[Rfam]
A member of the RNA family "Makes More Granules Regulator RNA (mmgR)" from a Caulobacteraceae bacterium, 76 nucleotides long. Lineage of the source: Bacteria > Pseudomonadati > Alphaproteobacteria > Caulobacterales > Caulobacteraceae. A search with the family's covariance model found it, with a score of 62 bits. The family's RNA type in Rfam is small RNA. Its Rfam clan is "suhB sRNA clan".
RNA sequence: CGCCUCUGCCCUUCCUGGGCGUUUCCUCCCUAUAAACUGGCCGGGCCUUCAGGGUCCGGCCGUUUUUUUUGGAGUC
Numbered sequence: 001c002g003c004c005u006c007u008g009c010c011c012u013u014c015c016u017g018g019g020c021g022u023u024u025c026c027u028c029c030c031u032a033u034a035a036a037c038u039g040g041c042c043g044g045g046c047c048u049u050c051a052g053g054g055u056c057c058g059g060c061c062g063u064u065u066u067u068u069u070u071g072g073a074g075u076c
Base pairs, nucleotide, nucleotide: 008020009019010018011017039061040060041059042058043057044056045055046054047053